[Rfam]
RNA sequence: UGGUAGCUGCCGCCCAAUCGCCUGCGGGCGAGCCGGGGACCCAGGAACCACCGGGGUGAAUCCGCGCGAGUGGUAGGGACACCCUUCCGUCCCGAACCCGUCAGCUAACCUGGUCGGCGGCCGACGGAAGGAACA
Numbered sequence: 001u002g003g004u005a006g007c008u009g010c011c012g013c014c015c016a017a018u019c020g021c022c023u024g025c026g027g028g029c030g031a032g033c034c035g036g037g038g039a040c041c042c043a044g045g046a047a048c049c050a051c052c053g054g055g056g057u058g059a060a061u062c063c064g065c066g067c068g069a070g071u072g073g074u075a076g077g078g079a080c081a082c083c084c085u086u087c088c089g090u091c092c093c094g095a096a097c098c099c100g101u102c103a104g105c106u107a108a109c110c111u112g113g114u115c116g117g118c119g120g121c122c123g124a125c126g127g128a129a130g131g132a133a134c135a
Base pairs, nucleotide, nucleotide: 011119012118013117014116018031019030020029032114033113034112035111036110037109042053054099055098056097062073063072064071065070076093077092078091079090
RNA: c-di-AMP riboswitch aptamer (ydaO/yuaA leader)